Shown here is a 134-nucleotide RNA sequence from Vibrio mediterranei, a member of the family "Histidine operon leader". A reference for the family is Kolter and Yanofsky (1982), "Attenuation in amino acid biosynthetic operons", Annu Rev Genet. Lineage of the source: Bacteria > Pseudomonadati > Vibrionaceae > Vibrio > Vibrio mediterranei. By type it is a cis-regulatory leader. Rfam links the family to the GO term histidine biosynthetic process. Rfam's curators write: At least 6 amino acid operons are known to be regulated by attenuation. In each a leader sequence of 150-200 bp is found upstream of the first gene in the operon. This leader sequence can assume two different secondary structures known as the terminator and the anti-terminator structure. In each case the leader also codes for very short peptide sequence that is rich in the end product amino acid of the operon. The terminator structure is recognised as a termination signal for RNA polymerase and the operon is not transcribed. This structure forms when the cell has an excess of the regulatory amino acid and ribosome movement over the leader transcript is not impeded. When there is a deficiency of the charged tRNA of the regulatory amino acid the ribosome translating the leader peptide stalls and the antiterminator structure can form. This allows RNA polymerase to transcribe the operon. In the Rfam alignment the consensus structure is of the terminator structure.
RNA sequence: UCAUCACCAUCAUCACCCAGCUUAAUCUUUCGGGAGAUGAACGCAUACCCGAGAGAUAGGUAAAACUCUCGGAGGUUCGAUUUAAGAUUUAAAGAAUUAAACCCUCGGGAGACCAAAGCUCCCGAGGGUUUUUU
Number, nucleotide and partner (000 for none) at each position: 001u000002c000003a000004u000005c000006a000007c000008c000009a046010u045011c039012a038013u037014c036015a000016c000017c034018c033019a000020g031021c000022u000023u000024a000025a000026u000027c000028u000029u000030u000031c020032g000033g018034g017035a000036g014037a013038u012039g011040a000041a000042c000043g000044c000045a010046u009047a000048c072049c071050c000051g070052a069053g068054a067055g066056a000057u000058a000059g000060g000061u000062a000063a000064a000065a000066c055067u054068c053069u052070c051071g049072g048073a000074g000075g000076u000077u000078c000079g000080a000081u000082u000083u000084a000085a000086g000087a000088u000089u000090u000091a000092a000093a000094g000095a000096a000097u000098u000099a131100a130101a129102c128103c127104c126105u125106c124107g123108g122109g121110a120111g119112a000113c000114c000115a000116a000117a000118g000119c111120u110121c109122c108123c107124g106125a105126g104127g103128g102129u101130u100131u099132u000133u000134u000